A member of the RNA family "Yeast U1 spliceosomal RNA" from Kazachstania africana, 522 nucleotides long. About the family: U1 is a small nuclear RNA (snRNA) component of the spliceosome (involved in pre-mRNA splicing). Its 5' end forms complementary base pairs with the 5' splice junction, thus defining the 5' donor site of an intron. The source organism's lineage runs through Eukaryota, Fungi, Dikarya, Ascomycota and Kazachstania africana. It scores 258 bits against the family's covariance model. It is annotated as a spliceosomal small nuclear RNA.
[Rfam]
RNA sequence: AUACUUACCUUAAGACGCCAGGGGAGAUCAAGAAGUCCUACUGGUCGAGUAUGCACUUUCACUUAGAAGGAUACUAAGCAUUCGAAACCACUUCUGUGGCUUUUUUAAUUGAUGUAAGUUCCUUAGUCAAUGUUAACACAUACAUGCGAAAGGUGUACUUGCUGACGUUUCGUUUUCCUGUUCUAUGCGUGUGUUAUCUGUCUUUGAUGGAAAAAUGCACUCUUAGGGCCCUUUCUUUCUUCUGCCUGGAGAAGCAUGGUACCGAGUACAAAUCGGUGCUAGGAAAGCUGGAAUAUUUUAAAAUGUGAUCAAUAUUAUUUUAUUGUGUCAACUGAGUGUCGAGUGAUUGAAUGAAAUUGAUCCCGAUUGGAGUAAUCUUAUUGUGGAGGUUAAAUUUCAUUUUCAUGAUCUUUUGGCUUAGCAAGAUUUUGAUAAUAUGUCCUUUGGACAGUUAAUGUUGUUGCAAUACUUUUGAAAUGUUUUAGUAGAAACGGGUGGGUCUUACAAUUUUUGAUUUAUUUU
Number, nucleotide and partner (000 for none) at each position: 001a000002u000003a000004c000005u000006u000007a000008c000009c000010u507011u506012a000013a502014g501015a500016c000017g045018c044019c043020a042021g041022g039023g038024g037025a036026g000027a000028u000029c000030a000031a000032g000033a000034a000035g000036u025037c024038c023039u022040a000041c021042u020043g019044g018045u017046c161047g160048a159049g158050u157051a156052u155053g154054c153055a000056c152057u151058u150059u149060c148061a000062c000063u000064u000065a000066g000067a000068a000069g000070g000071a000072u144073a000074c000075u000076a000077a000078g000079c000080a000081u000082u000083c000084g000085a000086a000087a000088c000089c000090a000091c000092u000093u000094c000095u000096g000097u000098g000099g000100c000101u000102u000103u000104u000105u000106u000107a000108a000109u000110u000111g000112a000113u000114g000115u000116a000117a000118g000119u000120u000121c000122c000123u000124u000125a000126g000127u000128c000129a000130a000131u000132g000133u000134u000135a000136a000137c000138a000139c000140a000141u000142a000143c000144a072145u000146g000147c000148g060149a059150a058151a057152g056153g054154u053155g052156u051157a050158c049159u048160u047161g046162c000163u000164g000165a000166c493167g492168u491169u490170u489171c488172g000173u000174u286175u285176u284177c283178c282179u281180g229181u228182u227183c226184u225185a224186u000187g000188c000189g000190u219191g218192u217193g216194u215195u000196a000197u000198c000199u000200g208201u207202c000203u000204u000205u000206g000207a201208u200209g000210g000211a000212a000213a000214a000215a194216u193217g192218c191219a190220c000221u000222c000223u000224u185225a184226g183227g182228g181229c180230c000231c000232u000233u000234u000235c000236u000237u000238u000239c254240u253241u252242c251243u250244g000245c000246c000247u000248g000249g000250a243251g242252a241253a240254g239255c000256a000257u000258g000259g279260u278261a277262c276263c275264g274265a273266g000267u000268a000269c000270a000271a000272a000273u265274c264275g263276g262277u261278g260279c259280u000281a179282g178283g177284a176285a175286a174287g000288c000289u000290g000291g000292a000293a000294u000295a000296u000297u000298u000299u000300a000301a000302a000303a000304u000305g000306u000307g000308a000309u000310c000311a000312a000313u000314a000315u000316u000317a000318u000319u000320u000321u000322a000323u000324u000325g000326u000327g000328u000329c000330a000331a000332c000333u000334g000335a000336g000337u000338g000339u000340c000341g000342a000343g000344u000345g000346a000347u000348u000349g000350a000351a000352u000353g000354a000355a000356a000357u000358u000359g000360a000361u000362c000363c000364c000365g000366a000367u000368u000369g000370g000371a000372g000373u000374a000375a000376u000377c000378u000379u000380a000381u000382u000383g000384u000385g000386g000387a000388g000389g000390u000391u000392a000393a000394a000395u000396u000397u000398c000399a000400u000401u000402u000403u000404c000405a000406u000407g000408a000409u000410c000411u000412u000413u000414u000415g000416g000417c000418u000419u000420a000421g000422c000423a000424a000425g000426a000427u000428u000429u000430u000431g000432a000433u000434a000435a000436u000437a000438u000439g000440u000441c000442c000443u000444u000445u000446g000447g000448a000449c000450a000451g000452u000453u000454a000455a000456u000457g000458u000459u000460g000461u000462u000463g000464c000465a000466a000467u000468a000469c000470u000471u000472u000473u000474g000475a000476a000477a000478u000479g000480u000481u000482u000483u000484a000485g000486u000487a000488g171489a170490a169491a168492c167493g166494g000495g000496u000497g000498g000499g000500u015501c014502u013503u000504a000505c000506a011507a010508u000509u000510u000511u000512u000513g000514a000515u000516u000517u000518a000519u000520u000521u000522u000